[Rfam]
RNA sequence: GAUACAAGCCGUCUUAUCGCUCCGGAUCAAAUUCGGGGAGGAAAGUCCGGGCACCACAGAGUAGCAUAGCGGGUAACUCCCGUCGUUCUCGCCUUAGGCGGGAAAAGGACAAGUGCAACAGAAAGAAUGUACAGGUAAUGCUGUAGUGAAAUCAGGUAAACUCUAUGCGGUGAAAUGCCAUGUAAACCGGUGCUUGAGGGUUGCUCGCCCGAUACCGGAGGGUAGGCAGAUUGAAUUAAACAGCAAUGUUUAAUCUAGAUAAAUGAUAAGAGUUAAGUUUAGCUUAAUACAGAACCCGGCUUACAGGCUUGUAUCAUAA
Numbered sequence: 001g002a003u004a005c006a007a008g009c010c011g012u013c014u015u016a017u018c019g020c021u022c023c024g025g026a027u028c029a030a031a032u033u034c035g036g037g038g039a040g041g042a043a044a045g046u047c048c049g050g051g052c053a054c055c056a057c058a059g060a061g062u063a064g065c066a067u068a069g070c071g072g073g074u075a076a077c078u079c080c081c082g083u084c085g086u087u088c089u090c091g092c093c094u095u096a097g098g099c100g101g102g103a104a105a106a107g108g109a110c111a112a113g114u115g116c117a118a119c120a121g122a123a124a125g126a127a128u129g130u131a132c133a134g135g136u137a138a139u140g141c142u143g144u145a146g147u148g149a150a151a152u153c154a155g156g157u158a159a160a161c162u163c164u165a166u167g168c169g170g171u172g173a174a175a176u177g178c179c180a181u182g183u184a185a186a187c188c189g190g191u192g193c194u195u196g197a198g199g200g201u202u203g204c205u206c207g208c209c210c211g212a213u214a215c216c217g218g219a220g221g222g223u224a225g226g227c228a229g230a231u232u233g234a235a236u237u238a239a240a241c242a243g244c245a246a247u248g249u250u251u252a253a254u255c256u257a258g259a260u261a262a263a264u265g266a267u268a269a270g271a272g273u274u275a276a277g278u279u280u281a282g283c284u285u286a287a288u289a290c291a292g293a294a295c296c297c298g299g300c301u302u303a304c305a306g307g308c309u310u311g312u313a314u315c316a317u318a319a
Base pairs, nucleotide, nucleotide: 001315002314003313004312005311006310007309008308009307010306011304012271013270014269015268016267017266018265020038021037022036023035024034025033026032027031043302044301045300047299048298049297050296051295052172053171054170055169059206060205061204062203064168065167066166067165068164069083070082071081072080073079084107086104087103088102089101090100091099092098108163109162113161114160115157116156130145131144132143133142134141176228177227178226179225187218188217189216190215191214198210199209200208201207235254236253237252238251239250240249241248242247
Rfam assigns this 319-nucleotide RNA sequence from Planktosalinus lacus to the family "Bacterial RNase P class A". It is annotated as a ribozyme. From the family's description: Ribonuclease P (RNase P) is a ubiquitous endoribonuclease, found in archaea, bacteria and eukarya as well as chloroplasts and mitochondria. Taxonomically the source falls in Planktosalinus (Bacteria, Pseudomonadati, Flavobacteriales, Flavobacteriaceae).